[Rfam]
RNA sequence: UGGUCAUUGCCAAGCCUUUGAGAAGGCAGUUUCUCAUUUGCUGUGGACAUGACCAUGAAGUUUCAUCCCCAUAGGUCUUCUUUCUACUACAUUGGUAGCAUUCAGCCUAUUGGGAACGUUG
Numbered sequence: 001u002g003g004u005c006a007u008u009g010c011c012a013a014g015c016c017u018u019u020g021a022g023a024a025g026g027c028a029g030u031u032u033c034u035c036a037u038u039u040g041c042u043g044u045g046g047a048c049a050u051g052a053c054c055a056u057g058a059a060g061u062u063u064c065a066u067c068c069c070c071a072u073a074g075g076u077c078u079u080c081u082u083u084c085u086a087c088u089a090c091a092u093u094g095g096u097a098g099c100a101u102u103c104a105g106c107c108u109a110u111u112g113g114g115a116a117c118g119u120u121g
Stems, first nucleotide, its partner, number of pairs: 003053005010046003026041004067114003074107003085100001087098001

Shown here is a 121-nucleotide RNA from Molossus molossus, a member of the family "Small nucleolar RNA SNORA32". ACA32 is a member of the H/ACA class of snoRNA that guide the sites of modification of uridines to pseudouridines. Its family is annotated with RNA processing and nucleolus in the Gene Ontology. The source organism's lineage runs through Eukaryota, Opisthokonta, Teleostomi, Sarcopterygii and Molossus.